A member of the RNA family "SAH (S-adenosyl-L-homocysteine) riboswitch aptamer" from Amycolatopsis sp. CA-230715, 82 nucleotides long.
Rfam links the family to the GO terms S-adenosylhomocysteine metabolic process and regulation of gene expression.
The family's consensus secondary structure is taken from published work.

RNA sequence: GGAGCCGAGAGGCGCUGCGACGGACCUCGGUCCGCCACGCUCGGCUCGCCGCGACCUCCCGUUUCAAGGGCGCCUCCUUUUU
Numbered sequence: 001g002g003a004g005c006c007g008a009g010a011g012g013c014g015c016u017g018c019g020a021c022g023g024a025c026c027u028c029g030g031u032c033c034g035c036c037a038c039g040c041u042c043g044g045c046u047c048g049c050c051g052c053g054a055c056c057u058c059c060c061g062u063u064u065c066a067a068g069g070g071c072g073c074c075u076c077c078u079u080u081u082u
Stems, first nucleotide, its partner, number of pairs: 002047007021034005
The family has 52 seed sequences and 1,354 matches in Rfam 15.1. A search with the family's covariance model found it, with a score of 43 bits.